[Rfam]
RNA: pan motif
Organism: Lederbergia citrea
RNA sequence: UGGGCAGUAUCUAUUUCAGAACUGCACCAUCAUGCAAGCAAUAAUAAUUAAAAAUUUUAAUCUGCCUUGAUCCAAUGAGGACGGGGACAGAGGA
Numbered sequence: 001u002g003g004g005c006a007g008u009a010u011c012u013a014u015u016u017c018a019g020a021a022c023u024g025c026a027c028c029a030u031c032a033u034g035c036a037a038g039c040a041a042u043a044a045u046a047a048u049u050a051a052a053a054a055u056u057u058u059a060a061u062c063u064g065c066c067u068u069g070a071u072c073c074a075a076u077g078a079g080g081a082c083g084g085g086g087a088c089a090g091a092g093g094a
Base pairs, nucleotide, nucleotide: 001029002028003027004025005024006023007022008021010020011019062090063089064088065086066085067084068083069082071081072080073079